[Rfam]
RNA sequence: UAGCGUUAAGGGCAAACCUGUCUAAAGACAGGGACGCAAAGCCAUAGGGUCUAAAGUGCUCGAUGAACUAUGACAGCCGGUUGCCGCA
Numbered sequence: 001u002a003g004c005g006u007u008a009a010g011g012g013c014a015a016a017c018c019u020g021u022c023u024a025a026a027g028a029c030a031g032g033g034a035c036g037c038a039a040a041g042c043c044a045u046a047g048g049g050u051c052u053a054a055a056g057u058g059c060u061c062g063a064u065g066a067a068c069u070a071u072g073a074c075a076g077c078c079g080g081u082u083g084c085c086g087c088a
Stems, first nucleotide, its partner, number of pairs: 012037002017032006040082004047078002049074003056068002059065001
The family of this 88-nucleotide sequence from Anaerovirgula multivorans is "c-di-GMP-I riboswitch aptamer".